[Rfam]
The record is a 178-nucleotide sequence from Acetivibrio thermocellus, which matches "Lysine riboswitch aptamer" in Rfam.
Taxonomically the source falls in Acetivibrio thermocellus (Bacteria, Bacillati, Clostridia, Acetivibrionaceae).
Its family is annotated with lysine biosynthetic process in the Gene Ontology.
Rfam describes the family as follows. Riboswitches are metabolite binding domains within certain messenger RNAs that serve as precision sensors for their corresponding targets.
RNA sequence: AUGCUUGAUAGAGGCGCAGUUUUCAAGAGUAGGCUUUCUGAAAAGUUUGAGCUUUAAUGACGAAAGUUGAAAGGGGAAACUGCCGAAGGUUGUAUCUGCUCAAACAGAUACAAUCUGGUUAUACGGUUAAGAGCUGUAUAACUGUCAUCAAUUUAUUUGAUGGAGCGCUAUCAGUUCA
Numbered sequence: 001a002u003g004c005u006u007g008a009u010a011g012a013g014g015c016g017c018a019g020u021u022u023u024c025a026a027g028a029g030u031a032g033g034c035u036u037u038c039u040g041a042a043a044a045g046u047u048u049g050a051g052c053u054u055u056a057a058u059g060a061c062g063a064a065a066g067u068u069g070a071a072a073g074g075g076g077a078a079a080c081u082g083c084c085g086a087a088g089g090u091u092g093u094a095u096c097u098g099c100u101c102a103a104a105c106a107g108a109u110a111c112a113a114u115c116u117g118g119u120u121a122u123a124c125g126g127u128u129a130a131g132a133g134c135u136g137u138a139u140a141a142c143u144g145u146c147a148u149c150a151a152u153u154u155a156u157u158u159g160a161u162g163g164a165g166c167g168c169u170a171u172c173a174g175u176u177c178a
Base pairs, nucleotide, nucleotide: 006173007172008171009170010169011168016083017082018081019080020079021078022077023076024075032068033067034066035065036064037063038062087116088115089114090113091112092111093110094109095108096107097106098105117143118142119141120140121139122138123137124136125135126134127133145163146162147161148160149159150158151157